[Rfam]
RNA sequence: GCGCUAGUUCCGUGCUUCCUUACUUCCCAUAGUUUUAAAUUCAUAUGGAAUGUAAAGAAGUAUGGAGCUGCGCG
Numbered sequence: 001g002c003g004c005u006a007g008u009u010c011c012g013u014g015c016u017u018c019c020u021u022a023c024u025u026c027c028c029a030u031a032g033u034u035u036u037a038a039a040u041u042c043a044u045a046u047g048g049a050a051u052g053u054a055a056a057g058a059a060g061u062a063u064g065g066a067g068c069u070g071c072g073c074g
Stems, first nucleotide, its partner, number of pairs: 007068012020055004025050001027048005

Description
The record is a 74-nucleotide sequence from Bicyclus anynana, which matches "mir-1 microRNA precursor family" in Rfam. The family has 137 seed sequences and 4,474 matches in Rfam 15.1. Rfam's curators write: This family represents the microRNA (miRNA) mir-1 family. miRNAs are transcribed as ~70nt precursors (modelled here) and subsequently processed by the Dicer enzyme to give a ~22nt product. A reference for the family is Ambros (2001), "microRNAs: tiny regulators with great potential", Cell. The match comes from Rfam's covariance-model search (63 bits).